[Rfam]
RNA sequence: AAUGAUAGUUUUGACGCUUUUUCAUUAUAAAUUAUAUGAAAUUUUUUCUACACCCAAAAAGGCCCUAUAACCUCUGCAGUAGAUCCCACUGCAGAGGUUAUAGGGCC
Numbered sequence: 001a002a003u004g005a006u007a008g009u010u011u012u013g014a015c016g017c018u019u020u021u022u023c024a025u026u027a028u029a030a031a032u033u034a035u036a037u038g039a040a041a042u043u044u045u046u047u048c049u050a051c052a053c054c055c056a057a058a059a060a061g062g063c064c065c066u067a068u069a070a071c072c073u074c075u076g077c078a079g080u081a082g083a084u085c086c087c088a089c090u091g092c093a094g095a096g097g098u099u100a101u102a103g104g105g106c107c
Stems, first nucleotide, its partner, number of pairs: 001026005008017002029044005061107005067101008077091004082086001

Shown here is a 107-nucleotide RNA from Streptococcus pantholopis, a member of the family "Streptococcus RNA 266". The base pairs follow the family's consensus structure. NCBI's taxonomy places the organism under Bacteria, Bacillati, Bacillota, Bacilli, Streptococcus. The family's RNA type in Rfam is small RNA. It scores 87 bits against the family's covariance model.